[Rfam]
RNA sequence: UUUGGCCAUGAUUGUCCAAACGCAAUUCUUGUGGUAACGAUCAAGAACUGUGUGUGGACAUCACUGCUCGA
Numbered sequence: 001u002u003u004g005g006c007c008a009u010g011a012u013u014g015u016c017c018a019a020a021c022g023c024a025a026u027u028c029u030u031g032u033g034g035u036a037a038c039g040a041u042c043a044a045g046a047a048c049u050g051u052g053u054g055u056g057g058a059c060a061u062c063a064c065u066g067c068u069c070g071a
Stems, first nucleotide, its partner, number of pairs: 002070001004068003009063004014059005021052004026047006
RNA: mir-219 microRNA precursor family